Plastid-psbA-1 3UTR RNA: a 62-nucleotide RNA. Clan: Plastid-psbA 3UTR RNA clan.
[Rfam]
RNA sequence: AAAAUAAAGGAGCAAUAAUAAACCUCUUGAUAUAACAAGAGGUUUAUUAUUGCUCCUUUAUU
Numbered sequence: 001a002a003a004a005u006a007a008a009g010g011a012g013c014a015a016u017a018a019u020a021a022a023c024c025u026c027u028u029g030a031u032a033u034a035a036c037a038a039g040a041g042g043u044u045u046a047u048u049a050u051u052g053c054u055c056c057u058u059u060a061u062u
Base pairs, nucleotide, nucleotide: 006059007058008057009056010055011054012053013052014051015050016049017048018047020045021044022043024041025040026039027038028037
By type it is a cis-regulatory element.
The base pairs follow the family's consensus structure, which was predicted with LocARNA.